[Rfam]
RNA sequence: GUCCUUACUCGGUAACCGUAGGAACCUUGUGCAGAAUUGCUUUAAGACAGCAAGCAAGGGUACCGUCGCAUAAGUCCUCAUAUCAAGUCUGGUAGCGAUAGCUUCUAGAAAGGGUUUCCUUAAAUCGAGAGAGGCAAGGGUACUGGUGCUAAAAACACCAGUAGAGGUGAACGGUACAUGGACAGUUCCUAGGAUAAUGCACAUCACUCGUUUAGCGUAUAAUAGACACCUCUGUGAGGGAUAAGCCUUAACGGCGUUAGUGGGAGCUAACGUAGCGGAGGGUAACCCAACCAAGCGCUUUGCUGAGAAGGACACUAACCCUGUCUGAGAUAACGUGGUGAUGGUACAAGUAGCCCAAUUCAGCGCCUUAAAAAGCAAUCCGAUAUAAUAGGACAAUACUCUGAACGUCCGGGUGAAAGUUACUACUCAUUGAGGUAGGUUACGCAUGUAAUAGCAAAGGGAAGUAGGGGAGUAGCUCUUCCAUACUCAGACCCUUUGAGCGUAUAGCAUAAUGUCUGUAAGAAUUGAAAGUAGGGUUAAAACACCCUACGGUUACUGAGUAAG
Dot-bracket structure: ......((((((((((((((((..(((((.......(((((.......))))).)))))..(((((...............(((...(((((.(((....))).)))))...))).(((((...((....))...)))))..(((((.........))))).........))))).......((((((....(........((((.(.((((.(((((..........((((...)))).....(((((....(((((((..[[..))))))).....)))))...]]......)))))[[[.......(((((.......))))).....)))).)..))))...(.....((((....]]]....................................[[[[.......))))....)...((.............)).((((.......).(..(((((..(.(.(((((.....))))).)..)]]]].)))))...))))............)....))))))......(.((....)).)))))))))))))))))...

A member of the RNA family "ROOL RNA" from Klumppvirus A9, 564 nucleotides long.
The organism belongs to Klumppvirus A9, within Viruses.
Firmicutes, Fusobacteria (1 example), Tenericutes (1 example).
It is annotated as a small RNA.
The family's consensus secondary structure is taken from published work.